[Rfam]
RNA sequence: CAGAGUAGGGCAAGUCCCACACGGCCAGCUCCCUCUGAACUCCGUCAGGGCCGGAAGGCAGCAGCGGUAGGAGGUCGCAGCGGCGCGAUGUGGGUAGCUUGCCCUUUU
Numbered sequence: 001c002a003g004a005g006u007a008g009g010g011c012a013a014g015u016c017c018c019a020c021a022c023g024g025c026c027a028g029c030u031c032c033c034u035c036u037g038a039a040c041u042c043c044g045u046c047a048g049g050g051c052c053g054g055a056a057g058g059c060a061g062c063a064g065c066g067g068u069a070g071g072a073g074g075u076c077g078c079a080g081c082g083g084c085g086c087g088a089u090g091u092g093g094g095u096a097g098c099u100u101g102c103c104c105u106u107u108u
Base pairs, nucleotide, nucleotide: 008104009103010102011101012100013099014098015097017093018092019091020090021089022087023086024084025083